RNA sequence: GCUGACCAUGCGGGAGAGCGCCGACGCCGAAAGGCCGAAGCCGCCGAAGGAGCAACCGCCCCGGAAUCUCUCAGGUCAAAGGACCGCGUGGACAGG
Numbered sequence: 001g002c003u004g005a006c007c008a009u010g011c012g013g014g015a016g017a018g019c020g021c022c023g024a025c026g027c028c029g030a031a032a033g034g035c036c037g038a039a040g041c042c043g044c045c046g047a048a049g050g051a052g053c054a055a056c057c058g059c060c061c062c063g064g065a066a067u068c069u070c071u072c073a074g075g076u077c078a079a080a081g082g083a084c085c086g087c088g089u090g091g092a093c094a095g096g
Stems, first nucleotide, its partner, number of pairs: 006091008020041002043076003046072002050070003056064002
The family of this 96-nucleotide RNA sequence from Sphingomonas sp. Root710 is "Glycine riboswitch aptamer".
NCBI's taxonomy places the organism under Bacteria, Pseudomonadati, Alphaproteobacteria, Sphingomonadales, Sphingomonas.
Pairs were carried over by alignment from the consensus structure.
A reference for the family is Mandal et al. (2004), "A glycine-dependent riboswitch that uses cooperative binding to control gene expression", Science.
It scores 58 bits against the family's covariance model.
About the family: This family represents the bacterial glycine riboswitch.